Overview:
Nuclear RNase P: a 333-nucleotide RNA sequence from Umbelopsis isabellina. The family is grouped with related families in Rfam's "RNaseP clan". By type it is a ribozyme. It scores 106 bits against the family's covariance model.

RNA sequence: AGAGGCGGUAAGCAGAAGAUUAGGGGAAAACACUCGACAAGACUUGUUCUUGAUUUUAUUACCCUUGGGAAGGUCUGAGCAAAGCCGCUGAAGUCCGAGAGGGACUGGUUGAGAACUUCUUGACCACCAAUAACCAGCAAUGGGGUUUUCAGCAGCUGCCUUGGGCGCGCUAAGAUCUCGACGUUUGCUUGCUUUUCUCAUUGACGUCCUUCGGGACUGAGGGUAUAGGCUUGUGAACCAUUGGAAGGAUGUUGGUUGGCUAAGCGAUUAUGGAGUGCAAUUCUUCUGGCCUGCUUCGUCGGGGAACUCAAUUCAGACUACUCUACUGCCUCU
Numbered sequence: 001a002g003a004g005g006c007g008g009u010a011a012g013c014a015g016a017a018g019a020u021u022a023g024g025g026g027a028a029a030a031c032a033c034u035c036g037a038c039a040a041g042a043c044u045u046g047u048u049c050u051u052g053a054u055u056u057u058a059u060u061a062c063c064c065u066u067g068g069g070a071a072g073g074u075c076u077g078a079g080c081a082a083a084g085c086c087g088c089u090g091a092a093g094u095c096c097g098a099g100a101g102g103g104a105c106u107g108g109u110u111g112a113g114a115a116c117u118u119c120u121u122g123a124c125c126a127c128c129a130a131u132a133a134c135c136a137g138c139a140a141u142g143g144g145g146u147u148u149u150c151a152g153c154a155g156c157u158g159c160c161u162u163g164g165g166c167g168c169g170c171u172a173a174g175a176u177c178u179c180g181a182c183g184u185u186u187g188c189u190u191g192c193u194u195u196u197c198u199c200a201u202u203g204a205c206g207u208c209c210u211u212c213g214g215g216a217c218u219g220a221g222g223g224u225a226u227a228g229g230c231u232u233g234u235g236a237a238c239c240a241u242u243g244g245a246a247g248g249a250u251g252u253u254g255g256u257u258g259g260c261u262a263a264g265c266g267a268u269u270a271u272g273g274a275g276u277g278c279a280a281u282u283c284u285u286c287u288g289g290c291c292u293g294c295u296u297c298g299u300c301g302g303g304g305a306a307c308u309c310a311a312u313u314c315a316g317a318c319u320a321c322u323c324u325a326c327u328g329c330c331u332c333u
Stems, first nucleotide, its partner, number of pairs: 001333004008326003013288007022066005038052005075316005083261004092106005107125006126256007144239005290303004